[Rfam]
RNA sequence: UGCACGGCAUGAAAGACGAUUUUUUCGGACCGGAGGUUCCAGCAAUGGAGCUAAAAGUCCGGAGCUCAUGUCGUCAGUGUCGUGCGUUCCGUCUCGAAACACGG
Numbered sequence: 001u002g003c004a005c006g007g008c009a010u011g012a013a014a015g016a017c018g019a020u021u022u023u024u025u026c027g028g029a030c031c032g033g034a035g036g037u038u039c040c041a042g043c044a045a046u047g048g049a050g051c052u053a054a055a056a057g058u059c060c061g062g063a064g065c066u067c068a069u070g071u072c073g074u075c076a077g078u079g080u081c082g083u084g085c086g087u088u089c090c091g092u093c094u095c096g097a098a099a100c101a102c103g104g
Base pairs, nucleotide, nucleotide: 001086002085003084004083005082006081007080008079009078010077015075016074023064024063025062026061027060028059037050038049039048040047041046089104090103091102092101
RNA: Archaeal large subunit ribosomal RNA, nucleotides 550 to 653